[Rfam]
Rfam assigns this 53-nucleotide RNA sequence to the family "Glutamine-II riboswitch aptamer".
For this family Rfam cites "Structure and ligand binding of the glutamine-II riboswitch" (Huang et al., Nucleic Acids Res, 2019).
RNA sequence: GUUCGUUCACCCUUAUGGGCGCAUAACACCUAGAGCAUGGAACGGGGCCUAGG
Numbered sequence: 001g002u003u004c005g006u007u008c009a010c011c012c013u014u015a016u017g018g019g020c021g022c023a024u025a026a027c028a029c030c031u032a033g034a035g036c037a038u039g040g041a042a043c044g045g046g047g048c049c050u051a052g053g
Base pairs, nucleotide, nucleotide: 004044005043006042007041008040010019011018012017029053030052031051032050033049035048036047
About this RNA:
Rfam's curators put it in the seed alignment. Its family is annotated with glutamine binding in the Gene Ontology.